[Rfam]
RNA sequence: UUGCAGUUAAAAAGCUCGUAGUUGAAUUUUUGCUAAAAAUAACCGGUCUGCUUUUAUUAAUAAAAGUGGUAUCUUGGUGUGUUUUUAGCAAUAAUGUUCUUUGAAAUGUUUUUUACUUUAUUGUAAAAAGCAAUUUCCAGGAUUUUUACUUUGAGAAAAUUAGAGUGUUUCAAGCAGGCUAACGUUUUGAAUACUGCAGCAUGGAAUAAUAAAAUAGGAAUUUAGUUCUACGUUAUUGGUUUUAAGAACUAAAUUAAUGAUUAAUAGGAGCAGUUGGGGGCAUUUGUAUUUAACUGUCAGAGGUGAAAUUCUUAGAUUUGUUAAAGACACACUACUGCGAAAGCAUUUGCCAAAGAUGUUUUCAUUAAUCAAGAACGAAAGUUAGGGGAUCGAAGACGAUCAGAUACCGUCGUAGUCUUAACUAUAAACUAUGCCGACUAGAGAUUGGAGGUCGUCUUUAUAAACGACUCCUUCAGCACCUUACGAGAAAUCAAAGUCUUUGGGUUCUGGGGGGAGUAUGGUCGCAAGGCUGAAACUUAAAGGAAU
Number, nucleotide and partner (000 for none) at each position: 001u000002u000003g000004c509005a508006g507007u000008u000009a000010a000011a000012a506013a000014g376015c000016u374017c373018g000019u000020a000021g369022u368023u367024g000025a000026a000027u000028u000029u000030u000031u000032g000033c000034u000035a000036a000037a000038a000039a000040u000041a000042a000043c000044c000045g000046g000047u000048c000049u000050g000051c000052u000053u000054u000055u000056a000057u000058u000059a000060a000061u000062a000063a000064a000065a000066g000067u000068g000069g000070u000071a000072u000073c000074u000075u000076g000077g000078u000079g000080u000081g000082u000083u000084u000085u000086u000087a000088g000089c000090a000091a000092u000093a000094a000095u000096g000097u000098u000099c000100u000101u000102u000103g000104a000105a000106a000107u000108g000109u000110u000111u000112u000113u000114u000115a000116c000117u000118u000119u000120a000121u000122u000123g000124u000125a000126a000127a000128a000129a000130g000131c000132a000133a000134u000135u000136u000137c000138c000139a000140g000141g000142a000143u000144u000145u000146u000147u000148a000149c000150u000151u000152u000153g000154a000155g000156a000157a000158a000159a000160u000161u000162a000163g000164a000165g000166u000167g000168u000169u000170u000171c000172a000173a000174g000175c000176a000177g000178g000179c000180u000181a000182a000183c000184g000185u000186u000187u000188u000189g000190a000191a000192u000193a000194c000195u000196g000197c000198a000199g000200c000201a000202u000203g000204g000205a000206a000207u000208a000209a000210u000211a000212a000213a000214a000215u000216a000217g000218g000219a000220a000221u000222u000223u000224a000225g000226u000227u000228c000229u000230a000231c000232g000233u000234u000235a000236u000237u000238g000239g000240u000241u000242u000243u000244a000245a000246g000247a000248a000249c000250u000251a000252a000253a000254u000255u000256a000257a000258u000259g000260a000261u000262u000263a000264a000265u000266a000267g363268g362269a361270g360271c358272a357273g000274u355275u354276g000277g000278g000279g351280g350281c349282a348283u000284u000285u329286g328287u000288a000289u325290u324291u323292a322293a321294c320295u000296g318297u000298c000299a000300g311301a310302g309303g000304u000305g000306a000307a000308a000309u302310u301311c300312u000313u000314a000315g000316a000317u000318u296319u000320g294321u293322u292323a291324a290325a289326g000327a000328c286329a285330c000331a000332c000333u000334a000335c000336u000337g344338c343339g000340a000341a000342a000343g338344c337345a000346u000347u000348u282349g281350c280351c279352a000353a000354a275355g274356a000357u272358g271359u000360u270361u269362u268363c267364a000365u000366u000367a023368a022369u021370c000371a000372a000373g017374a016375a000376c014377g000378a000379a000380a000381g422382u421383u420384a419385g418386g417387g000388g000389a000390u000391c415392g000393a000394a000395g411396a410397c409398g408399a000400u000401c000402a000403g000404a000405u000406a000407c000408c398409g397410u396411c395412g000413u000414a000415g391416u000417c386418u385419u384420a383421a382422c381423u000424a000425u000426a000427a000428a000429c000430u000431a000432u000433g505434c504435c503436g498437a497438c496439u000440a481441g480442a000443g000444a000445u476446u475447g474448g473449a472450g471451g470452u000453c000454g468455u467456c466457u000458u000459u000460a000461u000462a000463a000464a000465c000466g456467a455468c454469u000470c451471c450472u449473u448474c447475a446476g445477c000478a000479c000480c441481u440482u000483a000484c000485g492486a491487g000488a000489a000490a000491u486492c485493a000494a000495a000496g438497u437498c436499u000500u000501u000502g000503g435504g434505u433506u012507c006508u005509g004510g000511g538512g537513g536514g000515a000516g000517u000518a000519u000520g531521g530522u529523c528524g000525c000526a000527a000528g523529g522530c521531u520532g000533a000534a000535a000536c513537u512538u511539a000540a000541a000542g000543g000544a000545a000546u000
Eukaryotic small subunit ribosomal RNA: a 546-nucleotide part of an RNA from Sciurus carolinensis. It scores 1717 bits against the family's covariance model. Rfam 15.1 lists 75,755 matches to the family in 2,556 species. Rfam links the family to the GO terms structural constituent of ribosome and ribosome. The literature on the family includes a 2001 paper in Science by Yusupov et al., "Crystal structure of the ribosome at 5.5 A resolution".